[Rfam]
RNA sequence: GCGGCGGCCCUCAAGGGCUGAAGCUCCCGAAGGAAAAUGCCGCGAGGCAUGAGUACGAGGGAGCGGACCGGGGUCGCCCCGUACGUCUUGAAACACGC
Numbered sequence: 001g002c003g004g005c006g007g008c009c010c011u012c013a014a015g016g017g018c019u020g021a022a023g024c025u026c027c028c029g030a031a032g033g034a035a036a037a038u039g040c041c042g043c044g045a046g047g048c049a050u051g052a053g054u055a056c057g058a059g060g061g062a063g064c065g066g067a068c069c070g071g072g073g074u075c076g077c078c079c080c081g082u083a084c085g086u087c088u089u090g091a092a093a094c095a096c097g098c
Stems, first nucleotide, its partner, number of pairs: 001080001003078008015069002023064006032056001037050005084097003
RNA: Archaeal large subunit ribosomal RNA, nucleotides 555 to 652
Organism: Candidatus Korarchaeum cryptofilum